Eukaryotic large subunit ribosomal RNA: a 287-nucleotide part of an RNA from Vitis vinifera. A search with the family's covariance model found it, with a score of 2529 bits. Its family is annotated with structural constituent of ribosome and ribosome in the Gene Ontology.
[Rfam]
RNA sequence: GAGUCUUACAUGUAUGCGAGUCAAUGAGCCAAUAAACCCGUAAGGCGCAAGGAAGCUGACCGGCGGGAUCCCCCUUUGCGGGGUGCACAGUCAAUCGACCUCGAUCUUAUGAGAAGGGUUCGAGUGAGAGCAUGCCUCUUAAGACCCGAAAGAUGGUGAACUAUGCCUGAGCGAGAUGAAGCCAGAGGAAAUUCUAGUGGAGGCCCGCAGCGAUAUUGACAUGCAAAUCGUUUGUCUGACUUGGGUAUAGGUGUGAAAGACUAAUCGAACCAUCUAGUAGCUGGUUC
Numbered sequence: 001g002a003g004u005c006u007u008a009c010a011u012g013u014a015u016g017c018g019a020g021u022c023a024a025u026g027a028g029c030c031a032a033u034a035a036a037c038c039c040g041u042a043a044g045g046c047g048c049a050a051g052g053a054a055g056c057u058g059a060c061c062g063g064c065g066g067g068a069u070c071c072c073c074c075u076u077u078g079c080g081g082g083g084u085g086c087a088c089a090g091u092c093a094a095u096c097g098a099c100c101u102c103g104a105u106c107u108u109a110u111g112a113g114a115a116g117g118g119u120u121c122g123a124g125u126g127a128g129a130g131c132a133u134g135c136c137u138c139u140u141a142a143g144a145c146c147c148g149a150a151a152g153a154u155g156g157u158g159a160a161c162u163a164u165g166c167c168u169g170a171g172c173g174a175g176a177u178g179a180a181g182c183c184a185g186a187g188g189a190a191a192u193u194c195u196a197g198u199g200g201a202g203g204c205c206c207g208c209a210g211c212g213a214u215a216u217u218g219a220c221a222u223g224c225a226a227a228u229c230g231u232u233u234g235u236c237u238g239a240c241u242u243g244g245g246u247a248u249a250g251g252u253g254u255g256a257a258a259g260a261c262u263a264a265u266c267g268a269a270c271c272a273u274c275u276a277g278u279a280g281c282u283g284g285u286u287c
Stems, first nucleotide, its partner, number of pairs: 006141001008139001010137001012135006020046003025040002028037001050057002062092003066088001070083002094125002096122003099118003105112002145284002148281001152274006161250011172238001175205001177203001181198002184195004210235004215231002218229002253261002

NCBI's taxonomy places the organism under Eukaryota, Viridiplantae, eudicotyledons, rosids, Vitis.
On this family, see Yusupov et al., Science 2001: "Crystal structure of the ribosome at 5.5 A resolution".